[Rfam]
Nucleotides: 086
Base pairs, nucleotide, nucleotide: 002085003084005082040060043058044057045056046055
Number, partner (000 for none) and nucleotide at each position: 001000a002085a003084g004000u005082g006000a007000c008000a009000u010000g011000a012000u013000g014000a015000u016000g017000g018000a019000a020000u021000u022000u023000g024000u025000u026000u027000u028000c029000c030000c031000u032000a033000u034000u035000g036000g037000u038000u039000u040060g041000a042000c043058u044057g045056c046055c047000g048000c049000u050000a051000u052000g053000a054000u055046g056045g057044c058043a059000a060040c061000a062000a063000u064000g065000u066000a067000u068000u069000a070000g071000c072000u073000c074000u075000a076000u077000c078000u079000g080000a081000u082005c083000u084003c085002u086000u